The family of this 177-nucleotide sequence from Alteribacter lacisalsi is "Lysine riboswitch aptamer". The match comes from Rfam's covariance-model search (110 bits). Rfam's curators write: Riboswitches are metabolite binding domains within certain messenger RNAs that serve as precision sensors for their corresponding targets. Lineage of the source: Bacteria > Bacillati > Bacilli > Bacillaceae > Alteribacter. The base pairs follow the family's consensus structure, which is taken from published work.
[Rfam]
RNA sequence: GGAUGAGGUAGAGGCGCGAAGCUUAAGAGUAUGCAUCCGGAGGCGGCCACCUUUGAGGGAUGCAAAAAGGAACCUUCGCCGAAGCGGGCAUGUCCGGUCACGACUGCCCGGCUGGGGCUGUAUUGAAUAAAUACAGCACUGUCACUCGGGAAACCGUAGUGGAGAACUACUGACUCU
Numbered sequence: 001g002g003a004u005g006a007g008g009u010a011g012a013g014g015c016g017c018g019a020a021g022c023u024u025a026a027g028a029g030u031a032u033g034c035a036u037c038c039g040g041a042g043g044c045g046g047c048c049a050c051c052u053u054u055g056a057g058g059g060a061u062g063c064a065a066a067a068a069g070g071a072a073c074c075u076u077c078g079c080c081g082a083a084g085c086g087g088g089c090a091u092g093u094c095c096g097g098u099c100a101c102g103a104c105u106g107c108c109c110g111g112c113u114g115g116g117g118c119u120g121u122a123u124u125g126a127a128u129a130a131a132u133a134c135a136g137c138a139c140u141g142u143c144a145c146u147c148g149g150g151a152a153a154c155c156g157u158a159g160u161g162g163a164g165a166a167c168u169a170c171u172g173a174c175u176c177u
Base pairs, nucleotide, nucleotide: 007171008170009169010168011167016079017078018077019076020075021074023072024071032064033063034062035061036060037059038058083113084112085111086109087108088107089106090105093102114140115139117137118136119135120134121133122132123131124130142162143161144160145159146158